A member of the RNA family "Ma3 gene ribosomal frameshift signal" from Orycteropus afer, 60 nucleotides long. It scores 69 bits against the family's covariance model. A reference for the family is Wills et al. (2006), "A functional -1 ribosomal frameshift signal in the human paraneoplastic Ma3 gene", J Biol Chem. Rfam links the family to the GO term translational frameshifting. Taxonomically the source falls in Orycteropus afer (Eukaryota, Opisthokonta, Deuterostomia, Orycteropus).
RNA sequence: GGGAAAUGGGGGAGGGGCUGGGGCUGUGAGCCACCCCAAGCCCUAAGCAACAUGGGCUCA
Numbered sequence: 001g002g003g004a005a006a007u008g009g010g011g012g013a014g015g016g017g018c019u020g021g022g023g024c025u026g027u028g029a030g031c032c033a034c035c036c037c038a039a040g041c042c043c044u045a046a047g048c049a050a051c052a053u054g055g056g057c058u059c060a
Stems, first nucleotide, its partner, number of pairs: 014044006021037003028059005